[Rfam]
RNA sequence: UGAACACUUAGAUCCACCUCUGGAGGUGGUCCUGUACUGGUGCUGUCAUCUCCGAGUGCUGCAGCUUCAGCCCAGAGGCUCUCAGCAGCUUUCUGGCUGUACAAUCGGAGGUGUUUUAGUCAUUGGUGUUGUAGAGCAGUCUACCUGCCUCCCCAGCCCUCCUUCUGUACUGGCAACUCUCAGUUAUCAACCAGUGCAGCUUGGCUGGGGGGUGGACAAC
Numbered sequence: 001u002g003a004a005c006a007c008u009u010a011g012a013u014c015c016a017c018c019u020c021u022g023g024a025g026g027u028g029g030u031c032c033u034g035u036a037c038u039g040g041u042g043c044u045g046u047c048a049u050c051u052c053c054g055a056g057u058g059c060u061g062c063a064g065c066u067u068c069a070g071c072c073c074a075g076a077g078g079c080u081c082u083c084a085g086c087a088g089c090u091u092u093c094u095g096g097c098u099g100u101a102c103a104a105u106c107g108g109a110g111g112u113g114u115u116u117u118a119g120u121c122a123u124u125g126g127u128g129u130u131g132u133a134g135a136g137c138a139g140u141c142u143a144c145c146u147g148c149c150u151c152c153c154c155a156g157c158c159c160u161c162c163u164u165c166u167g168u169a170c171u172g173g174c175a176a177c178u179c180u181c182a183g184u185u186a187u188c189a190a191c192c193a194g195u196g197c198a199g200c201u202u203g204g205c206u207g208g209g210g211g212g213u214g215g216a217c218a219a220c
Base pairs, nucleotide, nucleotide: 001128002127007119008118010116011115015113016112017111018110019109020108021107022106025082026081028079030076031075037070038069039068042065043064045059047058048057049056085100086099087098088097089096090095145215146214147213148212149211152208155206156205157204158203166198167197168196169195170194171193172192173191176184177183178182